[Rfam]
The family of this 122-nucleotide sequence from Opisthorchis viverrini is "U11 spliceosomal RNA". The family is grouped with related families in Rfam's "U1 clan".
RNA sequence: AAAAAGGGCUCCCACCGCACAUGGUGCCUGUCCCUCCGGGGACUGGGCGGAAUGGCUAUCAAGACAUUCCGGGGGCGUAAUCUUUGUCACUGGGGCGGCCGAUCAACCCGGUUGGCGCCCCG
Numbered sequence: 001a002a003a004a005a006g007g008g009c010u011c012c013c014a015c016c017g018c019a020c021a022u023g024g025u026g027c028c029u030g031u032c033c034c035u036c037c038g039g040g041g042a043c044u045g046g047g048c049g050g051a052a053u054g055g056c057u058a059u060c061a062a063g064a065c066a067u068u069c070c071g072g073g074g075g076c077g078u079a080a081u082c083u084u085u086g087u088c089a090c091u092g093g094g095g096c097g098g099c100c101g102a103u104c105a106a107c108c109c110g111g112u113u114g115g116c117g118c119c120c121c122g
Stems, first nucleotide, its partner, number of pairs: 008076005013026005027047004033041001034039001048071007093120004098116005107111001

The match comes from Rfam's covariance-model search (81 bits). Rfam 15.1 lists 2,595 matches to the family in 1,202 species. The base pairs follow the family's consensus structure, which is taken from published work.